[Rfam]
RNA sequence: GGAACCUGUACUAGAUGCGGUGCAUCUAUGGUUAAGGA
Dot-bracket structure: ....((......((((((...))))))..)).......
Source information
The family of this 38-nucleotide sequence from Oribacterium sp. oral taxon 078 is "Selenocysteine insertion sequence 4". NCBI's taxonomy places the organism under Bacteria, Bacillati, Clostridia, Oribacterium, Oribacterium sp. oral taxon 078. The match comes from Rfam's covariance-model search (46 bits). On this family, see Graentzdoerffer et al., Arch Microbiol 2001: "Molecular analysis of the grd operon coding for genes of the glycine reductase and of the thioredoxin system from Clostridium sticklandii".